[Rfam]
RNA sequence: CUGCAUGUUAAUAACACCCAAUAAUUCUGCUUCUCAUUCCCAUGAGAAGCAUGAAUAUCUAUAACAUGCUACAGAAAACAAGGAGUUUUCAGGGCUGCCAGUCUUGCAGUAAAGACUGAGUGGUAGUAUAGGUCUCCUACAAGU
Numbered sequence: 001c002u003g004c005a006u007g008u009u010a011a012u013a014a015c016a017c018c019c020a021a022u023a024a025u026u027c028u029g030c031u032u033c034u035c036a037u038u039c040c041c042a043u044g045a046g047a048a049g050c051a052u053g054a055a056u057a058u059c060u061a062u063a064a065c066a067u068g069c070u071a072c073a074g075a076a077a078a079c080a081a082g083g084a085g086u087u088u089u090c091a092g093g094g095c096u097g098c099c100a101g102u103c104u105u106g107c108a109g110u111a112a113a114g115a116c117u118g119a120g121u122g123g124u125a126g127u128a129u130a131g132g133u134c135u136c137c138u139a140c141a142a143g144u
Base pairs, nucleotide, nucleotide: 003069004068005067006066007065008064026053028051029050030049031048032047033046082137083136084135085134094124095123098120099118100117101116102115103114104113105112
Source information:
This 144-nucleotide sequence from Picathartes gymnocephalus belongs to the Rfam family "Small nucleolar RNA U109". Rfam 15.1 lists 1,405 matches to the family in 622 species. A reference for the family is Gu et al. (2005), "A novel experimental approach for systematic identification of box H/ACA snoRNAs from eukaryotes", Nucleic Acids Res.